Overview:
A member of the RNA family "Small nucleolar RNA SNORD83" from Pangasianodon hypophthalmus, 77 nucleotides long. The family's RNA type in Rfam is C/D-box small nucleolar RNA. It scores 53 bits against the family's covariance model. The family's consensus secondary structure was predicted with PFOLD.
[Rfam]
RNA sequence: GCCACAUGAUGUUAUAUAGACGGCAUUAGCACUCAGUGCAAAGAUGACCUAGUAUCUAUCACCCGAGACUGAUGGUU
Numbered sequence: 001g002c003c004a005c006a007u008g009a010u011g012u013u014a015u016a017u018a019g020a021c022g023g024c025a026u027u028a029g030c031a032c033u034c035a036g037u038g039c040a041a042a043g044a045u046g047a048c049c050u051a052g053u054a055u056c057u058a059u060c061a062c063c064c065g066a067g068a069c070u071g072a073u074g075g076u077u
Stems, first nucleotide, its partner, number of pairs: 001076004029039004